[Rfam]
RNA: Archaeal large subunit ribosomal RNA, nucleotides 690 to 958
Organism: Acidilobus saccharovorans
Nucleotides: 269
Base pairs, nucleotide, nucleotide: 005124006123007122008121009120010119011118012117013116014115015114016113017112020044021043022042023041026038027037028036029035048055049054061090062089063088064087068083069082070081071080072079073078093107094106095105096104127267128266130264134257135256136255137254138253139252143233144232145231146230147229148228149227150226151225152224153223154221156189157188158187159186163181164180165179166178167177168176169175193218194217195216196215199213201212202211235245236244237243
Number, partner (000 for none) and nucleotide at each position: 001000g002000a003000g004000u005124u006123c007122a008121c009120g010119g011118c012117c013116g014115u015114g016113g017112c018000g019000a020044g021043c022042c023041u024000a025000a026038g027037g028036g029035g030000g031000u032000c033000a034000g035029c036028c037027c038026c039000g040000a041023a042022g043021g044020c045000g046000u047000a048055g049054g050000g051000a052000a053000a054049c055048c056000g057000a058000c059000a060000g061090g062089c063088c064087c065000g066000c067000a068083g069082c070081c071080g072079g073078g074000g075000a076000a077000a078073c079072c080071c081070g082069g083068c084000g085000a086000g087064g088063g089062g090061c091000g092000g093107g094106g095105u096104c097000c098000u099000a100000a101000c102000a103000g104096g105095g106094c107093c108000c109000g110000g111000a112017g113016u114015c115014a116013c117012g118011g119010c120009c121008g122007u123006g124005a125000g126000g127267c128266c129000c130264g131000a132000a133000a134257c135256c136255g137254g138253g139252c140000g141000a142000u143233c144232u145231a146230g147229a148228c149227g150226g151225g152224g153223g154221c155000a156189g157188g158187c159186c160000g161000a162000a163181g164180c165179g166178g167177g168176g169175g170000g171000c172000u173000a174000a175169c176168c177167c178166c179165c180164g181163u182000g183000g184000a185000g186159g187158g188157c189156c190000g191000a192000a193218g194217g195216g196215g197000u198000u199213c200000u201212g202211a203000c204000g205000u206000g207000c208000a209000a210000c211202u212201c213199g214000u215196u216195c217194c218193c219000a220000u221154g222000a223153c224152c225151c226150c227149c228148g229147u230146c231145u232144a233143g234000g235245g236244g237243u238000g239000a240000a241000a242000g243237g244236c245235c246000a247000a248000u249000c250000u251000a252139g253138c254137c255136c256135g257134g258000u259000g260000a261000u262000a263000g264130c265000u266128g267127g268000u269000u